[Rfam]
RNA sequence: GCCGAGCUCAGUAACGCGAGCUUGUAACUCAAAUGAGGGCAUUAAAGUGGUGGGACACGGUUCAGGUGUUGCAGUGUUGCUUGGUUGGGCUUGAAGUUGUUACUUGCUGGCUUGCCCACUCCAAGUCGUGAGCCGAGCCAUGGCGCUCGACCGAAGGGUCGAGUGUCUUGGCUCCUAGAUGAGAGGGAACGGCGUGAGGCUGGCUUCACAGAGCAGCGAUAACCUCUAGCUCUUGACAGUGGAGGGAUAACAGGCUGGUGCACUUCUAGUCCGAUAUGCCUGGUGGCCCGAAAUGCUUGAACCAUCAUCUUU
Numbered sequence: 001g002c003c004g005a006g007c008u009c010a011g012u013a014a015c016g017c018g019a020g021c022u023u024g025u026a027a028c029u030c031a032a033a034u035g036a037g038g039g040c041a042u043u044a045a046a047g048u049g050g051u052g053g054g055a056c057a058c059g060g061u062u063c064a065g066g067u068g069u070u071g072c073a074g075u076g077u078u079g080c081u082u083g084g085u086u087g088g089g090c091u092u093g094a095a096g097u098u099g100u101u102a103c104u105u106g107c108u109g110g111c112u113u114g115c116c117c118a119c120u121c122c123a124a125g126u127c128g129u130g131a132g133c134c135g136a137g138c139c140a141u142g143g144c145g146c147u148c149g150a151c152c153g154a155a156g157g158g159u160c161g162a163g164u165g166u167c168u169u170g171g172c173u174c175c176u177a178g179a180u181g182a183g184a185g186g187g188a189a190c191g192g193c194g195u196g197a198g199g200c201u202g203g204c205u206u207c208a209c210a211g212a213g214c215a216g217c218g219a220u221a222a223c224c225u226c227u228a229g230c231u232c233u234u235g236a237c238a239g240u241g242g243a244g245g246g247a248u249a250a251c252a253g254g255c256u257g258g259u260g261c262a263c264u265u266c267u268a269g270u271c272c273g274a275u276a277u278g279c280c281u282g283g284u285g286g287c288c289c290g291a292a293a294u295g296c297u298u299g300a301a302c303c304a305u306c307a308u309c310u311u312u
Stems, first nucleotide, its partner, number of pairs: 001040003004023006028037003044311002047308007056299002060294001061292003065288002077286005083280003087272005093266003098262002101260002107258008116246002119244005125237004130232004135174006142167011182227005191220001193218003200211003
A member of the RNA family "Plant signal recognition particle RNA" from Senna tora, 312 nucleotides long. The source organism's lineage runs through Eukaryota, Gunneridae, Fabales, Cassieae and Senna. A search with the family's covariance model found it, with a score of 228 bits. Pairs were carried over by alignment from the consensus structure, which is taken from published work.